[Rfam]
A member of the RNA family "ALIL pseudoknot" from Actinomyces massiliensis, 129 nucleotides long. Rfam classes the family as a cis-regulatory element.
RNA sequence: GGCUUUCUUCGCGGCGGAGCUCGACCGCCCAUCUCGUUGAUCUGCCAGUACAUCGACUCCCGCAAGAAGGAGUUCGGGGUCGAGCCGAUCUGCAAGGUGCUCACUGGCGCCGGAGUCAAGAUCGCCCCG
Numbered sequence: 001g002g003c004u005u006u007c008u009u010c011g012c013g014g015c016g017g018a019g020c021u022c023g024a025c026c027g028c029c030c031a032u033c034u035c036g037u038u039g040a041u042c043u044g045c046c047a048g049u050a051c052a053u054c055g056a057c058u059c060c061c062g063c064a065a066g067a068a069g070g071a072g073u074u075c076g077g078g079g080u081c082g083a084g085c086c087g088a089u090c091u092g093c094a095a096g097g098u099g100c101u102c103a104c105u106g107g108c109g110c111c112g113g114a115g116u117c118a119a120g121a122u123c124g125c126c127c128c129g
Stems, first nucleotide, its partner, number of pairs: 013029005075129005086124002089121003